[Rfam]
RNA: tRNA
Organism: Romanomermis culicivorax
RNA sequence: GGCGUAUUGGUCUGGUGGUGAGGACAUCAGCCUGGAAUGCUGAUAACUCAGGUUCGACUCCUGGCUACACCC
Numbered sequence: 001g002g003c004g005u006a007u008u009g010g011u012c013u014g015g016u017g018g019u020g021a022g023g024a025c026a027u028c029a030g031c032c033u034g035g036a037a038u039g040c041u042g043a044u045a046a047c048u049c050a051g052g053u054u055c056g057a058c059u060c061c062u063g064g065c066u067a068c069a070c071c072c
Base pairs, nucleotide, nucleotide: 001071002070004068005067006066010025011024012023013022027043028042029041030040031039048064049063050062051061052060
Dot-bracket structure: ((.(((...((((........)))).(((((.......)))))....(((((.......))))).))).)).